[Rfam]
This 114-nucleotide sequence belongs to the Rfam family "Hairpin ribozyme 1 from viruses-like metatranscriptomes". Rfam links the family to the GO term RNA nuclease activity. The literature on the family includes a 2021 paper in Nucleic Acids Res by Weinberg et al., "Identification of over 200-fold more hairpin ribozymes than previously known in diverse circular RNAs". The base pairs follow the family's consensus structure, which is taken from published work.

RNA sequence: GGACUGGACCAAGGCUCAUUCAGGUUGGAUCUUGCAUCCUAGGGUUGCCUGGAGUCAUGGCGAAGUCAGACAGGAAAACACGGCUCAAACCCGAGAGUCGGCACAUUAACUGUC
Numbered sequence: 001g002g003a004c005u006g007g008a009c010c011a012a013g014g015c016u017c018a019u020u021c022a023g024g025u026u027g028g029a030u031c032u033u034g035c036a037u038c039c040u041a042g043g044g045u046u047g048c049c050u051g052g053a054g055u056c057a058u059g060g061c062g063a064a065g066u067c068a069g070a071c072a073g074g075a076a077a078a079c080a081c082g083g084c085u086c087a088a089a090c091c092c093g094a095g096a097g098u099c100g101g102c103a104c105a106u107u108a109a110c111u112g113u114c
Stems, first nucleotide, its partner, number of pairs: 002067003009060003013056003022050004069114005081100006